[Rfam]
RNA: FMN riboswitch aptamer (RFN element)
Organism: Weissella ceti
RNA sequence: AUAUUUCUUCAGGGCAGGGUGCAAUUCCCGACCGGCGGUAAAGUCCGCGACUCGCUUUUGCGAUUGACAUGGUGUAAUUCCAUGACCGACAGUAAAGUCUGGUAUACAGAAGAACUAA
Numbered sequence: 001a002u003a004u005u006u007c008u009u010c011a012g013g014g015c016a017g018g019g020u021g022c023a024a025u026u027c028c029c030g031a032c033c034g035g036c037g038g039u040a041a042a043g044u045c046c047g048c049g050a051c052u053c054g055c056u057u058u059u060g061c062g063a064u065u066g067a068c069a070u071g072g073u074g075u076a077a078u079u080c081c082a083u084g085a086c087c088g089a090c091a092g093u094a095a096a097g098u099c100u101g102g103u104a105u106a107c108a109g110a111a112g113a114a115c116u117a118a
Base pairs, nucleotide, nucleotide: 003116005114006113007112008111009110010109017029018028019027031098032097033088034087035048036047037046038045043086044085052063053062068084069083070082071081072080090101091100092099